[Rfam]
RNA sequence: CACCACUUGGUGAAAAUAUUUUGCGUCGUGGUACGGCUUAGUAGGCCGCAAGGCUCGAAACGCCGUAAAGCAAAAAAGGAG
Number, nucleotide and partner (000 for none) at each position: 001c012002a011003c010004c009005a000006c000007u000008u000009g004010g003011u002012g001013a000014a000015a000016a000017u000018a000019u000020u000021u000022u072023g071024c070025g000026u000027c000028g000029u000030g000031g000032u067033a066034c065035g064036g063037c062038u000039u000040a000041g000042u000043a000044g056045g055046c053047c052048g000049c000050a000051a000052g047053g046054c000055u045056c044057g000058a000059a000060a000061c000062g037063c036064c035065g034066u033067a032068a000069a000070g024071c023072a022073a000074a000075a000076a000077a000078g000079g000080a000081g000
About this RNA
RT-18 RNA: an 81-nucleotide sequence. The base pairs follow the family's consensus structure, which is taken from published work. Rfam's curators put it in the seed alignment. By type it is a small RNA.